[Rfam]
RNA sequence: GGGUCAAGAGUGCUGCCUUUAAGUGGUGCGUCGAGGUUUCUCGCUUGGCUC
Dot-bracket structure: ((((((((.(((((((......)))))))..((((....))))))))))))